[Rfam]
RNA sequence: GAUUGGCAGGAGUGAUGAAUCAAUUAGAUGCACAAAGUGACCUUAUGAGCUGAAACACUGAGGCCUAUUUUUUCUCUGAUUUGCCAUUU
Numbered sequence: 001g002a003u004u005g006g007c008a009g010g011a012g013u014g015a016u017g018a019a020u021c022a023a024u025u026a027g028a029u030g031c032a033c034a035a036a037g038u039g040a041c042c043u044u045a046u047g048a049g050c051u052g053a054a055a056c057a058c059u060g061a062g063g064c065c066u067a068u069u070u071u072u073u074c075u076c077u078g079a080u081u082u083g084c085c086a087u088u089u
Stems, first nucleotide, its partner, number of pairs: 001089002004086007
This 89-nucleotide sequence from Miscanthus lutarioriparius belongs to the Rfam family "Small nucleolar RNA Z266". The family's consensus secondary structure was predicted with PFOLD. The family's RNA type in Rfam is C/D-box small nucleolar RNA. The match comes from Rfam's covariance-model search (73 bits). Lineage of the source: Eukaryota > Viridiplantae > Tracheophyta > Poales > Miscanthus.